[Rfam]
RNA sequence: UCAGUCUUCAUCAUUUCCUCAUCCCCGGGGUCCAGUUUUCCCAGGAAUCCCUUGGGCAAUCGAAAGGGGGAUUCCUGGAAAUACUGUUCUUGGGGUUGGGGCUGGACUACUGA
Numbered sequence: 001u002c003a004g005u006c007u008u009c010a011u012c013a014u015u016u017c018c019u020c021a022u023c024c025c026c027g028g029g030g031u032c033c034a035g036u037u038u039u040c041c042c043a044g045g046a047a048u049c050c051c052u053u054g055g056g057c058a059a060u061c062g063a064a065a066g067g068g069g070g071a072u073u074c075c076u077g078g079a080a081a082u083a084c085u086g087u088u089c090u091u092g093g094g095g096u097u098g099g100g101g102c103u104g105g106a107c108u109a110c111u112g113a
Stems, first nucleotide, its partner, number of pairs: 033086004038081002041078012
mir-145 microRNA precursor family: a 113-nucleotide sequence from Danio rerio. The base pairs follow the family's consensus structure, which was predicted with RNAalifold. Rfam's curators put it in the seed alignment. The family has 26 seed sequences and 645 matches in Rfam 15.1. Taxonomically the source falls in Danio (Eukaryota, Metazoa, Craniata, Danionidae). Its family is annotated with RISC complex and miRNA-mediated post-transcriptional gene silencing in the Gene Ontology.